A member of the RNA family "Lysine riboswitch aptamer" from Lawsonibacter faecis, 180 nucleotides long. Rfam describes the family as follows. Riboswitches are metabolite binding domains within certain messenger RNAs that serve as precision sensors for their corresponding targets.

RNA sequence: CUGCAAGAUAGAGGUCGCGGUUUUCAAGAGUAGCGCGGUGAGGGGUCCGACGCCCCGCCGAGCCGCUGCGAAAGGGUAAGCCGCCGAAGGGGUCUCCCCCGCGGAGGGGAUUUCUCUGGGCGCCGGGCGAACAGCCCUGCGACUGUCACCGGACCCGUCCGGUGGAGUGCUGUCUGCUUU
Numbered sequence: 001c002u003g004c005a006a007g008a009u010a011g012a013g014g015u016c017g018c019g020g021u022u023u024u025c026a027a028g029a030g031u032a033g034c035g036c037g038g039u040g041a042g043g044g045g046u047c048c049g050a051c052g053c054c055c056c057g058c059c060g061a062g063c064c065g066c067u068g069c070g071a072a073a074g075g076g077u078a079a080g081c082c083g084c085c086g087a088a089g090g091g092g093u094c095u096c097c098c099c100c101g102c103g104g105a106g107g108g109g110a111u112u113u114c115u116c117u118g119g120g121c122g123c124c125g126g127g128c129g130a131a132c133a134g135c136c137c138u139g140c141g142a143c144u145g146u147c148a149c150c151g152g153a154c155c156c157g158u159c160c161g162g163u164g165g166a167g168u169g170c171u172g173u174c175u176g177c178u179u180u
Base pairs, nucleotide, nucleotide: 006175007174008173009172010171011170017084018083019082020081021080022079023078025076033069034068035066036065037064038063039062088117089116090115091114092113095110096109097108098107099106118144119143121141122140123139125137126136127135128134146165147164148163149162150161151160152159